[Rfam]
RNA: Small nucleolar RNA SNORA48
Organism: Molossus molossus
RNA sequence: UGUCCCUGAUCUGGGUAGAGUUGCACCUGAUUUGGUGGUGCUUGUGUCAUAUCAGCCAAGGACAAUAGUAACUUACAGCUUGGCUUUUGGUCUGUGCUCAUGCCUGGUUCAUGCCCUGGAUACAUCG
Dot-bracket structure: (((((.((..((((...((...(((((.........))))).....))...)))).)).)))))......(.(((......(((...(((.(((.((....)).))).))).))).))).)......